Shown here is a 78-nucleotide RNA sequence from Microtus ochrogaster, a member of the family "mir-3473 microRNA precursor family".
[Rfam]
RNA sequence: ACCACUGAGCCAUCUCUCCAGCCCCCUAUACAUAGUUUAAAAAGAAUUAUCCUCGGGCUGGAGAGAUGGCUCAGAGGU
Numbered sequence: 001a002c003c004a005c006u007g008a009g010c011c012a013u014c015u016c017u018c019c020a021g022c023c024c025c026c027u028a029u030a031c032a033u034a035g036u037u038u039a040a041a042a043a044g045a046a047u048u049a050u051c052c053u054c055g056g057g058c059u060g061g062a063g064a065g066a067u068g069g070c071u072c073a074g075a076g077g078u
Base pairs, nucleotide, nucleotide: 002077003076005074006073007072008071009070010069011068012067013066014065015064016063017062018061019060020059021058022057023056024055
The source organism's lineage runs through Eukaryota, Opisthokonta, Boreoeutheria, Arvicolinae and Microtus. A search with the family's covariance model found it, with a score of 73 bits.